This 223-nucleotide RNA from Lathyrus oleraceus belongs to the Rfam family "Plant small nucleolar RNA U3". For this family Rfam cites "Comparative analysis of eukaryotic U3 snoRNA" (Marz and Stadler, RNA Biol, 2010). Rfam links the family to the GO terms RNA processing and nucleolus. About the family: Small nucleolar RNAs (snoRNAs) are involved in the processing and modification of rRNA in the nucleolus. There are two main classes of snoRNAs: the box C/D class, and the box H/ACA class. The match comes from Rfam's covariance-model search (175 bits). Rfam classes the family as a C/D-box small nucleolar RNA.
RNA sequence: ACGACCUUACUUGAACAGGAUCUGUUCUAUAGGCUCGUACUACUGUAUCCUUGAUUUCUAAGGAGACAGGAAUGAAAGUCUGGAUGAAGAAAAGAGACCGUGCGAUCAGAGCGUGAUUAAUGGCUGAGAUGAUUGUCAGGUUGAUAUGGCAUCUUGUGCAGUAGAUGAUCGCUCUUGUGCAGUCUACUCUGUACGGGGUGGUCGUACGGUGAUAUGACAGACU
Numbered sequence: 001a002c003g004a005c006c007u008u009a010c011u012u013g014a015a016c017a018g019g020a021u022c023u024g025u026u027c028u029a030u031a032g033g034c035u036c037g038u039a040c041u042a043c044u045g046u047a048u049c050c051u052u053g054a055u056u057u058c059u060a061a062g063g064a065g066a067c068a069g070g071a072a073u074g075a076a077a078g079u080c081u082g083g084a085u086g087a088a089g090a091a092a093a094g095a096g097a098c099c100g101u102g103c104g105a106u107c108a109g110a111g112c113g114u115g116a117u118u119a120a121u122g123g124c125u126g127a128g129a130u131g132a133u134u135g136u137c138a139g140g141u142u143g144a145u146a147u148g149g150c151a152u153c154u155u156g157u158g159c160a161g162u163a164g165a166u167g168a169u170c171g172c173u174c175u176u177g178u179g180c181a182g183u184c185u186a187c188u189c190u191g192u193a194c195g196g197g198g199u200g201g202u203c204g205u206a207c208g209g210u211g212a213u214a215u216g217a218c219a220g221a222c223u
Stems, first nucleotide, its partner, number of pairs: 001038002003035001005033003013027006043069004048064006078222005097210012110173004120162002123159002127155001128153004175196008